The record is a 600-nucleotide part of an RNA, which matches "Bacterial large subunit ribosomal RNA" in Rfam. Pairs were carried over by alignment from the consensus structure, which is taken from published work. Gene Ontology terms of the family: ribosome and structural constituent of ribosome.
RNA sequence: GACUAGCCAAUGAUUAUAAAGGAGGUUUAAAUACCAAAUAUCCUAGCUAAUAAUUUCAAGCUUAGCUAAAUCUAGGAUUAUCCAAUGGGAAACCAAAAAUUUUUAAAUUAAUAAACAACCUUAUGAACUGAAACAUCUAAGUAAUAAGAGGAAAAAAAAUCAACUGAGAUUCUGCUAGUAGUGGUGAGCGAAAACAGAUUAGCCUGCCGGCAUAAAGCUGGCUAUAAUAUAUAAUUUAAUCAUGAAUAAUAAAUUUCUUCCCUGGUGUUGAAUAGACAUUUUUUGGGAUUAAUUAAAUUUCUGGAAGUGAGAUAUACCAAAGAGGGUGAUAGUCCCGUAAUAAUUAAAUUAUAAUUUGUUUAACCGUUGCUUCUGCAAUAGGGGAUUAGAACAAAUAAUUAUGCUUCCUUGGCUUCAACCAGGGGAUUCAUCUAUUAAAGGAUGAAGCAUAAUUUAAAUAAAAAAAGUAAGAUGGAAGAUAAUCUGUCUGAAUUAGGGGAACCAUCCUCUAAGGCUAAAUAUGAAUCAUUGAGCGAUAGUGGAUAGUACCGUGAGGGAAACGUUGAAAAGCAAGUAGAUAACUGGUGAAAUAGAUCCUGA
Numbered sequence: 001g002a003c004u005a006g007c008c009a010a011u012g013a014u015u016a017u018a019a020a021g022g023a024g025g026u027u028u029a030a031a032u033a034c035c036a037a038a039u040a041u042c043c044u045a046g047c048u049a050a051u052a053a054u055u056u057c058a059a060g061c062u063u064a065g066c067u068a069a070a071u072c073u074a075g076g077a078u079u080a081u082c083c084a085a086u087g088g089g090a091a092a093c094c095a096a097a098a099a100u101u102u103u104u105a106a107a108u109u110a111a112u113a114a115a116c117a118a119c120c121u122u123a124u125g126a127a128c129u130g131a132a133a134c135a136u137c138u139a140a141g142u143a144a145u146a147a148g149a150g151g152a153a154a155a156a157a158a159a160u161c162a163a164c165u166g167a168g169a170u171u172c173u174g175c176u177a178g179u180a181g182u183g184g185u186g187a188g189c190g191a192a193a194a195c196a197g198a199u200u201a202g203c204c205u206g207c208c209g210g211c212a213u214a215a216a217g218c219u220g221g222c223u224a225u226a227a228u229a230u231a232u233a234a235u236u237u238a239a240u241c242a243u244g245a246a247u248a249a250u251a252a253a254u255u256u257c258u259u260c261c262c263u264g265g266u267g268u269u270g271a272a273u274a275g276a277c278a279u280u281u282u283u284u285g286g287g288a289u290u291a292a293u294u295a296a297a298u299u300u301c302u303g304g305a306a307g308u309g310a311g312a313u314a315u316a317c318c319a320a321a322g323a324g325g326g327u328g329a330u331a332g333u334c335c336c337g338u339a340a341u342a343a344u345u346a347a348a349u350u351a352u353a354a355u356u357u358g359u360u361u362a363a364c365c366g367u368u369g370c371u372u373c374u375g376c377a378a379u380a381g382g383g384g385a386u387u388a389g390a391a392c393a394a395a396u397a398a399u400u401a402u403g404c405u406u407c408c409u410u411g412g413c414u415u416c417a418a419c420c421a422g423g424g425g426a427u428u429c430a431u432c433u434a435u436u437a438a439a440g441g442a443u444g445a446a447g448c449a450u451a452a453u454u455u456a457a458a459u460a461a462a463a464a465a466a467g468u469a470a471g472a473u474g475g476a477a478g479a480u481a482a483u484c485u486g487u488c489u490g491a492a493u494u495a496g497g498g499g500a501a502c503c504a505u506c507c508u509c510u511a512a513g514g515c516u517a518a519a520u521a522u523g524a525a526u527c528a529u530u531g532a533g534c535g536a537u538a539g540u541g542g543a544u545a546g547u548a549c550c551g552u553g554a555g556g557g558a559a560a561c562g563u564u565g566a567a568a569a570g571c572a573a574g575u576a577g578a579u580a581a582c583u584g585g586u587g588a589a590a591u592a593g594a595u596c597c598u599g600a
Stems, first nucleotide, its partner, number of pairs: 001597001002563002006534002008531007015523002017115001024083002027080001028036001042076005048070001051064003086095003096104003119150001120148005130137002160167002170519001171198004181189002201516004215372003219366003223362001282354002286350002289347001292341002297315002300312002318322001324336003378489001380487001495510005549556002573583003